[Rfam]
RNA sequence: UACUCCUCGCGUUCACUGCCGGGGCCAUAUGUGUGUUAUAAAAAUCAUAAGGCACGCGGUGAAUGCCAAGAGCG
Numbered sequence: 001u002a003c004u005c006c007u008c009g010c011g012u013u014c015a016c017u018g019c020c021g022g023g024g025c026c027a028u029a030u031g032u033g034u035g036u037u038a039u040a041a042a043a044a045u046c047a048u049a050a051g052g053c054a055c056g057c058g059g060u061g062a063a064u065g066c067c068a069a070g071a072g073c074g
Stems, first nucleotide, its partner, number of pairs: 003072003009066008018057002025052002028049004
Dot-bracket structure: ..(((...((((((((.((.....((.((((..............)))).))...)).))))))))...)))..
Description
Rfam assigns this 74-nucleotide sequence from Trichoplusia ni to the family "mir-124 microRNA precursor family". Rfam links the family to the GO terms miRNA-mediated post-transcriptional gene silencing and RISC complex. The base pairs follow the family's consensus structure, which was predicted with PFOLD. The organism belongs to Trichoplusia, within Eukaryota. A reference for the family is Lai et al. (2003), "Computational identification of Drosophila microRNA genes", Genome Biol.